RpsF leader: an 80-nucleotide sequence from Ferrimonas lipolytica. Pairs were carried over by alignment from the consensus structure. The literature on the family includes a 2014 paper in RNA by Fu et al., "Bacterial RNA motif in the 5' UTR of rpsF interacts with an S6:S18 complex". Conserved and widely distributed to many bacterial species RNA structure. It precedes operon containing rpsF, which encodes ribosomal protein S6. It scores 46 bits against the family's covariance model. The organism belongs to Ferrimonas, within Bacteria.
[Rfam]
RNA sequence: GCCAAAACCCUUUUUGUUCCUUGCUUCAUAGGCCCGGCCGAGCCAUUUGAAGCUAACUAACCGUAAGGAGCGAUACGAUG
Numbered sequence: 001g002c003c004a005a006a007a008c009c010c011u012u013u014u015u016g017u018u019c020c021u022u023g024c025u026u027c028a029u030a031g032g033c034c035c036g037g038c039c040g041a042g043c044c045a046u047u048u049g050a051a052g053c054u055a056a057c058u059a060a061c062c063g064u065a066a067g068g069a070g071c072g073a074u075a076c077g078a079u080g
Stems, first nucleotide, its partner, number of pairs: 016071007023053006031044003